[Rfam]
RNA sequence: GUGAGAGCCUUUGCUCUCACACUCCUCACACUUAAAAAUGCCCGACUUGUUCGGGUUUU
Numbered sequence: 001g002u003g004a005g006a007g008c009c010u011u012u013g014c015u016c017u018c019a020c021a022c023u024c025c026u027c028a029c030a031c032u033u034a035a036a037a038a039u040g041c042c043c044g045a046c047u048u049g050u051u052c053g054g055g056u057u058u059u
Stems, first nucleotide, its partner, number of pairs: 001020008040056006
RNA: Cyanobacterial functional RNA 1